[Rfam]
RNA sequence: UGGGCCGGGAGGGGAGGUGGGCAUGUUUUGUCUAACCCUAACUAGGAGGAGGACGUAGGCGCCGUGCUUUUGUUCCCCGCGCGCUGUUUUUCUCGCUGACUUUCAGCGUGCGGAAAAGCCUUGGCCUGCCGUCGACCACUGUCUAAUUAAAAGCAAACAAAAAAUGUCAGCGUGGCCGGUCCGCCCCUCCCGGGUACCUGCGGCAGCUCGCCCGGCUGGCCCCCGAGCCCCGCCUAGGGCCACGGCUGGCGCGGGGCUUCUCCGGGAGCGCCAUGGCCGCCGCGAAGAGUUCGUCUCUGUCAGCCGCGGGUCGCGCGGGGGCCGCGGGGGAGUCCUAGGCCGAGUGGCCGCAGGAAGAGAAACGGAGCCUGUCCCUGUGCACGGGGCGCUUCUCUGAGCUGUGGGAAGUGCCCCGAGACUCGGCUCCUACAAGC
Numbered sequence: 001u002g003g004g005c006c007g008g009g010a011g012g013g014g015a016g017g018u019g020g021g022c023a024u025g026u027u028u029u030g031u032c033u034a035a036c037c038c039u040a041a042c043u044a045g046g047a048g049g050a051g052g053a054c055g056u057a058g059g060c061g062c063c064g065u066g067c068u069u070u071u072g073u074u075c076c077c078c079g080c081g082c083g084c085u086g087u088u089u090u091u092c093u094c095g096c097u098g099a100c101u102u103u104c105a106g107c108g109u110g111c112g113g114a115a116a117a118g119c120c121u122u123g124g125c126c127u128g129c130c131g132u133c134g135a136c137c138a139c140u141g142u143c144u145a146a147u148u149a150a151a152a153g154c155a156a157a158c159a160a161a162a163a164a165u166g167u168c169a170g171c172g173u174g175g176c177c178g179g180u181c182c183g184c185c186c187c188u189c190c191c192g193g194g195u196a197c198c199u200g201c202g203g204c205a206g207c208u209c210g211c212c213c214g215g216c217u218g219g220c221c222c223c224c225g226a227g228c229c230c231c232g233c234c235u236a237g238g239g240c241c242a243c244g245g246c247u248g249g250c251g252c253g254g255g256g257c258u259u260c261u262c263c264g265g266g267a268g269c270g271c272c273a274u275g276g277c278c279g280c281c282g283c284g285a286a287g288a289g290u291u292c293g294u295c296u297c298u299g300u301c302a303g304c305c306g307c308g309g310g311u312c313g314c315g316c317g318g319g320g321g322c323c324g325c326g327g328g329g330g331a332g333u334c335c336u337a338g339g340c341c342g343a344g345u346g347g348c349c350g351c352a353g354g355a356a357g358a359g360a361a362a363c364g365g366a367g368c369c370u371g372u373c374c375c376u377g378u379g380c381a382c383g384g385g386g387c388g389c390u391u392c393u394c395u396g397a398g399c400u401g402u403g404g405g406a407a408g409u410g411c412c413c414c415g416a417g418a419c420u421c422g423g424c425u426c427c428u429a430c431a432a433g434c
Stems, first nucleotide, its partner, number of pairs: 005193010016182002019177002022174002066119005078112009095171006101164003197354007206333004211328004219322007229310005241284001243282003247279004254272002286298004365426004371419003375415001384413005391406004
The record is a 434-nucleotide sequence from Chinchilla lanigera, which matches "Vertebrate telomerase RNA" in Rfam. A reference for the family is Chen et al. (2000), "Secondary structure of vertebrate telomerase RNA", Cell. Rfam's curators write: Telomerase is a ribonucleoprotein reverse transcriptase that synthesises telomeric DNA. Telomerase RNAs differ greatly in sequence and structure between vertebrates, ciliates and yeasts, but they share a 5' pseudoknot structure close to the template sequence. Vertebrate telomerase RNAs have a 3' H/ACA snoRNA-like domain. Its family is annotated with telomerase activity, telomerase catalytic core complex and telomere maintenance via telomerase in the Gene Ontology. The family is grouped with related families in Rfam's "Telomerase clan". Rfam 15.1 lists 523 matches to the family in 477 species. Taxonomically the source falls in Chinchilla (Eukaryota, Sarcopterygii, Tetrapoda, Mammalia). Rfam classes the family as a non-coding RNA gene.